[Rfam]
RNA sequence: UAGCUCUGAUUUCUCUUAAGUCACAUAUAAAUCUUUCAUAUUUUACUAAAGAUUUCUGUGGAGAGGAACAUCAAUGUGUUUGAUGUAUUUUUAUGAGAUUUGCUUUGGUAAAGC
Number, nucleotide and partner (000 for none) at each position: 001u000002a000003g079004c078005u000006c076007u000008g000009a000010u068011u067012u066013c065014u064015c063016u062017u061018a000019a059020g000021u000022c000023a000024c000025a000026u000027a000028u000029a055030a054031a053032u052033c051034u050035u049036u048037c000038a000039u000040a000041u000042u000043u000044u000045a000046c000047u000048a036049a035050a034051g033052a032053u031054u030055u029056c000057u000058g000059u019060g000061g017062a016063g015064a014065g013066g012067a011068a010069c000070a000071u000072c000073a000074a000075u000076g006077u000078g004079u003080u000081u000082g000083a000084u000085g000086u000087a000088u000089u000090u000091u000092u000093a000094u000095g000096a000097g000098a000099u000100u000101u000102g114103c113104u112105u000106u000107g000108g000109u000110a000111a000112a104113g103114c102
Description: This 114-nucleotide sequence from Hemibagrus wyckioides belongs to the Rfam family "U5 spliceosomal RNA". The family's consensus secondary structure is taken from published work. Its family is annotated with U5 snRNP and spliceosomal tri-snRNP complex assembly in the Gene Ontology.